[Rfam]
RNA sequence: UACGACACCCAUCAAAGGAGUUGUUCCCCGUCCAGGGGCUACCUUACCAAAUUCUGAAUUA
Numbered sequence: 001u002a003c004g005a006c007a008c009c010c011a012u013c014a015a016a017g018g019a020g021u022u023g024u025u026c027c028c029c030g031u032c033c034a035g036g037g038g039c040u041a042c043c044u045u046a047c048c049a050a051a052u053u054c055u056g057a058a059u060u061a
Stems, first nucleotide, its partner, number of pairs: 017045002020042002023039005
RNA: Plastid-psbN 5UTR RNA
Organism: Hibiscus syriacus